RNA sequence: AAAGACUCAAUUCUUGGGUUUCCGUGUCCAACGUUUAACCGUCCAUGUUAUAUGAAAUUUUUUUAUGAUUAGUAAUUUCAUUAUUGCUAGAUAAUAAAACAUGAAUAAUACUUUAUGCAUGACUUAUAUUUUUAAUUUUUAAAUUUUUUUUUUAAAUAAGACGGAUGGUCAAAUAUUAGACACGAAAAUUUAGG
Numbered sequence: 001a002a003a004g005a006c007u008c009a010a011u012u013c014u015u016g017g018g019u020u021u022c023c024g025u026g027u028c029c030a031a032c033g034u035u036u037a038a039c040c041g042u043c044c045a046u047g048u049u050a051u052a053u054g055a056a057a058u059u060u061u062u063u064u065a066u067g068a069u070u071a072g073u074a075a076u077u078u079c080a081u082u083a084u085u086g087c088u089a090g091a092u093a094a095u096a097a098a099a100c101a102u103g104a105a106u107a108a109u110a111c112u113u114u115a116u117g118c119a120u121g122a123c124u125u126a127u128a129u130u131u132u133u134a135a136u137u138u139u140u141a142a143a144u145u146u147u148u149u150u151u152u153u154a155a156a157u158a159a160g161a162c163g164g165a166u167g168g169u170c171a172a173a174u175a176u177u178a179g180a181c182a183c184g185a186a187a188a189u190u191u192a193g194g
Base pairs, nucleotide, nucleotide: 027180028179030177031176034173035172036171038169039168040167041166042165043164044163046161048159049158050157051156
RNA: MIR812 microRNA precursor family